Rfam assigns this 141-nucleotide RNA sequence from Paracoccus aminovorans to the family "FMN riboswitch aptamer (RFN element)". The base pairs follow the family's consensus structure, which is taken from published work. NCBI's taxonomy places the organism under Bacteria, Pseudomonadati, Pseudomonadota, Paracoccaceae, Paracoccus. It scores 108 bits against the family's covariance model.

RNA sequence: CCGGGUUCUCAGGGCGGGGCGGAAUUCCCCACCGGCGGUAAGCAGCGAUGCAAGCCCGCGAGCGCCUUGCCCCGGCAAGGGUCAGCAGACCAGGUGCGAUUCCUGGGCCGACGGUCACAGUCCGGAUGGAAGAGAGCGUGC
Dot-bracket structure: ..(.((((((......(((.......))).[[((((((...............[[))))..((.....................))...(((((.......)))))]])).(((.....]]))).......)))))).)..